[Rfam]
RNA sequence: UAUAUCACAACAAACCAGAUCUGUGUCCAGCAGUCCUGAGCCAACUGGGGUAUUCGUGCUCCGGUUGUGUUUCGGUUGUUAGUGCUGGACAGCUCGACGAUUCAUGGAGCCAUCAUGGAAAAAAUGUUAUUUUAUCCUCAAAACAAUGGUGUCAAUUUCCGGUCGACAGAUCUCAGAGAGAUUCUCAGCGGCCCGGUUCUCUUCUUUUGGAAGAAUUAACACUCUGCCUUGAGCUCCCUUUCCGUUUCGGCGGGUUGGUGAAUUCGGUGAGAUGGCCGGGUUCUUUGCUGAGGGCGUCAUAUUCCACCUCCCUUUACCGAUUUCGUCCCUUUUAUUCCCGUUGCUUGGGGAAGGGAUGUGGCCGUCGGCUGAUGAGGUUAGGGAAAAACCAUGACUUGCCAACAUCU
Number, nucleotide and partner (000 for none) at each position: 001u000002a000003u000004a000005u000006c000007a000008c000009a000010a000011c000012a000013a000014a000015c000016c000017a173018g172019a171020u170021c169022u168023g167024u166025g090026u089027c088028c087029a086030g085031c000032a083033g000034u081035c078036c075037u074038g073039a072040g071041c069042c000043a066044a065045c064046u063047g062048g061049g000050g059051u058052a057053u000054u000055c000056g000057u052058g051059c050060u000061c048062c047063g046064g045065u044066u043067g000068u000069g041070u000071u040072u039073c038074g037075g036076u000077u000078g035079u000080u000081a034082g000083u032084g000085c030086u029087g028088g027089a026090c025091a000092g000093c000094u000095c000096g000097a000098c165099g164100a163101u162102u161103c000104a000105u154106g153107g152108a000109g150110c149111c148112a147113u146114c000115a000116u000117g000118g000119a000120a000121a000122a000123a000124a000125u000126g000127u000128u000129a000130u000131u000132u000133u000134a000135u000136c000137c000138u000139c000140a000141a000142a000143a000144c000145a000146a113147u112148g111149g110150u109151g000152u107153c106154a105155a000156u000157u000158u000159c000160c000161g102162g101163u100164c099165g098166a024167c023168a022169g021170a020171u019172c018173u017174c000175a000176g000177a000178g000179a000180g000181a000182u000183u000184c000185u000186c287187a286188g000189c000190g000191g281192c280193c279194c278195g277196g276197u000198u000199c000200u000201c000202u000203u000204c269205u000206u267207u266208u000209g000210g265211a264212a263213g000214a000215a000216u000217u000218a000219a000220c000221a000222c000223u000224c000225u000226g000227c000228c000229u000230u000231g000232a000233g000234c000235u000236c000237c000238c000239u000240u000241u000242c000243c000244g000245u000246u000247u000248c000249g000250g000251c000252g000253g000254g000255u000256u000257g000258g000259u000260g000261a000262a000263u212264u211265c210266g207267g206268u000269g204270a000271g000272a000273u000274g000275g000276c196277c195278g194279g193280g192281u191282u000283c000284u000285u000286u187287g186288c000289u000290g000291a000292g000293g400294g399295c398296g395297u394298c393299a392300u391301a000302u000303u000304c000305c000306a000307c000308c000309u384310c383311c382312c381313u380314u000315u000316a378317c377318c376319g000320a000321u000322u000323u000324c000325g000326u000327c000328c000329c000330u000331u000332u000333u000334a000335u000336u000337c000338c000339c000340g000341u000342u000343g000344c000345u000346u000347g000348g000349g000350g000351a000352a000353g000354g000355g000356a000357u000358g000359u000360g370361g369362c368363c367364g000365u000366c000367g363368g362369c361370u360371g000372a000373u000374g000375a000376g318377g317378u316379u000380a313381g312382g311383g310384a309385a000386a000387a000388a000389c000390c000391a300392u299393g298394a297395c296396u000397u000398g295399c294400c293401a000402a000403c000404a000405u000406c000407u000